[Rfam]
RNA sequence: GCCUUGCGCCUGAAAGGGCGACGGUGUCGAACCGGAGCGAGAAGUCAGCAGAGGUCGUAGUAGUCCGAGGCGAGGCCCACGAUGGGAGAAGACCAGAGGCGAAGGAC
Number, nucleotide and partner (000 for none) at each position: 001g028002c000003c000004u023005u000006g000007c020008g019009c018010c017011u016012g000013a000014a000015a000016g011017g010018g009019c008020g007021a000022c000023g004024g000025u000026g000027u000028c001029g000030a000031a000032c000033c000034g000035g000036a000037g000038c000039g000040a000041g000042a000043a000044g000045u052046c051047a000048g000049c000050a000051g046052a045053g000054g107055u106056c105057g000058u000059a000060g000061u000062a000063g100064u099065c098066c000067g000068a000069g000070g000071c000072g000073a000074g000075g000076c000077c000078c000079a000080c000081g000082a000083u095084g094085g000086g000087a000088g000089a000090a000091g000092a000093c000094c084095a083096g000097a000098g065099g064100c063101g000102a000103a000104g000105g056106a055107c054
A member of the RNA family "Group II catalytic intron D1-D4-1", 107 nucleotides long. Pairs were carried over by alignment from the consensus structure. A search with the family's covariance model found it, with a score of 40 bits. Rfam's curators write: Group II introns are found in rRNA, tRNA and mRNA of organelles in fungi, plants and protists, and also in mRNA in bacteria.